Small nucleolar RNA SNORA13: a 132-nucleotide RNA from Parambassis ranga. Rfam 15.1 lists 1,034 matches to the family in 605 species. Lineage of the source: Eukaryota > Chordata > Euteleostomi > Ambassidae > Parambassis. ACA13 is a member of the H/ACA class of snoRNA that guide the sites of modification of uridines to pseudouridines.
RNA sequence: UGCCUUUGUGUUGCCCUUUCAUUGUGUUCUUCAUGAACAGGGUGUCUACUAAGGCAUACAGAAACACUUGCAGUUGUUGGAAGAAUUCAUCAUCACUGAUCAAUUUCUACACAAUUGAUUGCAAGUACAAAU
Numbered sequence: 001u002g003c004c005u006u007u008g009u010g011u012u013g014c015c016c017u018u019u020c021a022u023u024g025u026g027u028u029c030u031u032c033a034u035g036a037a038c039a040g041g042g043u044g045u046c047u048a049c050u051a052a053g054g055c056a057u058a059c060a061g062a063a064a065c066a067c068u069u070g071c072a073g074u075u076g077u078u079g080g081a082a083g084a085a086u087u088c089a090u091c092a093u094c095a096c097u098g099a100u101c102a103a104u105u106u107c108u109a110c111a112c113a114a115u116u117g118a119u120u121g122c123a124a125g126u127a128c129a130a131a132u
Stems, first nucleotide, its partner, number of pairs: 002055005010046001012044004018037005067125004071117004080110001082108003085104002090098001
Dot-bracket structure: .(((((...(.((((..(((((..........)))))...)))).)....)))))...........((((((((.....(.(((((...(.......)....)).))).)...))))....)))).......